[Rfam]
RNA sequence: AGGGCGGUAUCUGUUUAGAACCGCACCACUCGUUUUUUUGAACAAAAUAGUCUGCCUUGAUCCAAAAUGGACUGGGACAGAGGG
Numbered sequence: 001a002g003g004g005c006g007g008u009a010u011c012u013g014u015u016u017a018g019a020a021c022c023g024c025a026c027c028a029c030u031c032g033u034u035u036u037u038u039u040g041a042a043c044a045a046a047a048u049a050g051u052c053u054g055c056c057u058u059g060a061u062c063c064a065a066a067a068u069g070g071a072c073u074g075g076g077a078c079a080g081a082g083g084g
Base pairs, nucleotide, nucleotide: 002027003026004024005023006022007021008020010019011018052080053079054078055076056075057074059072061071062070063069
Dot-bracket structure: .(((((((.((......))))))).))........................((((((.(.(((.....)))).))).)))....

The family of this 84-nucleotide sequence from Guptibacillus hwajinpoensis is "pan motif". The source organism's lineage runs through Bacteria, Bacillati, Bacillota, Bacilli and Guptibacillus. The family's consensus secondary structure is taken from published work. A search with the family's covariance model found it, with a score of 71 bits.